Description
The record is a 109-nucleotide RNA, which matches "SL2 RNA" in Rfam. This family represents SL2 RNA. SL2 RNA is involved in trans splicing in lower eukaryotes. Trans-splicing is a form of RNA processing. The acquisition of a spliced leader from a SL RNA is a intra-molecular reaction which precisely joins exons derived from separately transcribed RNAs. Pairs were carried over by alignment from the consensus structure, which is taken from published work. Its family is annotated with mRNA trans splicing, via spliceosome in the Gene Ontology. It is annotated as a non-coding RNA gene.
[Rfam]
RNA sequence: GUUAAUAACCCAGUUACCAAGGUACGCUGGAGUUCUGACCUUUCGAAAGAGAGUGUCGAACGAAUCUAAUUUUUGGAUACGCUCUGCUGGGGAUCUCCGGCGGGGCAAA
Number, nucleotide and partner (000 for none) at each position: 001g000002u000003u000004a000005a000006u000007a034008a033009c030010c029011c000012a000013g027014u026015u024016a023017c022018c000019a000020a000021g000022g017023u016024a015025c000026g014027c013028u000029g010030g009031a000032g000033u008034u007035c000036u058037g057038a056039c055040c053041u052042u051043u050044c049045g000046a000047a000048a000049g044050a043051g042052a041053g040054u000055g039056u038057c037058g036059a000060a000061c000062g000063a000064a000065u000066c000067u000068a000069a000070u000071u000072u000073u000074u000075g000076g000077a000078u000079a000080c000081g000082c000083u107084c000085u105086g000087c103088u102089g101090g000091g098092g097093a000094u000095c000096u000097c092098c091099g000100g000101c089102g088103g087104g000105g085106c000107a083108a000109a000